[Rfam]
This 149-nucleotide RNA sequence from Desulforamulus aquiferis belongs to the Rfam family "glmS glucosamine-6-phosphate activated ribozyme aptamer". The match comes from Rfam's covariance-model search (103 bits). Pairs were carried over by alignment from the consensus structure, which is taken from published work. Rfam describes the family as follows. This entry contains a glucosamine-6-phosphate activated ribozyme that is found in the mRNA for GlmS. GlmS is an enzyme that uses fructose-6-phosphate and glutamine to generate glucosamine-6-phosphate. The ribozyme catalyses self cleavage of the glmS mRNA that is thought to regulate GlmS activity.
RNA sequence: ACUAAAUAAAAAGCGCCAGAACCCUAUCAUAAGGGUUGACGAGGAGAGGGAGUAUCGAGUAUUCGGCGGGUGCCCUCCGGCCGGUCACGGCCGAGAAAGCAGCAUAAAACCCGGAGGUAACUCUGGAGACAAAGACUGCAGGUGACCAU
Numbered sequence: 001a002c003u004a005a006a007u008a009a010a011a012a013g014c015g016c017c018a019g020a021a022c023c024c025u026a027u028c029a030u031a032a033g034g035g036u037u038g039a040c041g042a043g044g045a046g047a048g049g050g051a052g053u054a055u056c057g058a059g060u061a062u063u064c065g066g067c068g069g070g071u072g073c074c075c076u077c078c079g080g081c082c083g084g085u086c087a088c089g090g091c092c093g094a095g096a097a098a099g100c101a102g103c104a105u106a107a108a109a110c111c112c113g114g115a116g117g118u119a120a121c122u123c124u125g126g127a128g129a130c131a132a133a134g135a136c137u138g139c140a141g142g143u144g145a146c147c148a149u
Stems, first nucleotide, its partner, number of pairs: 020037006046077005055066004078093006099139004111126006
The source organism's lineage runs through Bacteria, Bacillati, Clostridia, Eubacteriales and Desulforamulus.